[Rfam]
RNA: Small nucleolar RNA SNORA57
Organism: Pleuronectes platessa
RNA sequence: CCUCCAUUUCUUGACACACAUGUUGUUGUUAAGUACCCAUGUGUGAAAUGACGGAGGAAAAGUGACUACAAUGCUAUGUCUUCGGUACCGGUGUGUGUUAUCGUCUGCCGGUUCUAUCCUCAAUCGCUGUGACAUUC
Numbered sequence: 001c002c003u004c005c006a007u008u009u010c011u012u013g014a015c016a017c018a019c020a021u022g023u024u025g026u027u028g029u030u031a032a033g034u035a036c037c038c039a040u041g042u043g044u045g046a047a048a049u050g051a052c053g054g055a056g057g058a059a060a061a062g063u064g065a066c067u068a069c070a071a072u073g074c075u076a077u078g079u080c081u082u083c084g085g086u087a088c089c090g091g092u093g094u095g096u097g098u099u100a101u102c103g104u105c106u107g108c109c110g111g112u113u114c115u116a117u118c119c120u121c122a123a124u125c126g127c128u129g130u131g132a133c134a135u136u137c
Stems, first nucleotide, its partner, number of pairs: 001057005015045006022038001025036002069129002072126002088111006